[Rfam]
RNA sequence: AACAGCACCCCGAUAUAUCUGGUUGUUAGGUCCGGUUCGCUUUGGUCGGUUGGACCGGACAGGGCACGCCCGCUUCGGUGGGCGUUUU
Numbered sequence: 001a002a003c004a005g006c007a008c009c010c011c012g013a014u015a016u017a018u019c020u021g022g023u024u025g026u027u028a029g030g031u032c033c034g035g036u037u038c039g040c041u042u043u044g045g046u047c048g049g050u051u052g053g054a055c056c057g058g059a060c061a062g063g064g065c066a067c068g069c070c071c072g073c074u075u076c077g078g079u080g081g082g083c084g085u086u087u088u
Stems, first nucleotide, its partner, number of pairs: 010022002012019002030060006037054002066085008
Shown here is an 88-nucleotide RNA from Salmonella enterica, a member of the family "isrB Hfq binding RNA". On this family, see Padalon-Brauch et al., Nucleic Acids Res 2008: "Small RNAs encoded within genetic islands of Salmonella typhimurium show host-induced expression and role in virulence". It is one of the family's seed sequences. The family's RNA type in Rfam is small RNA.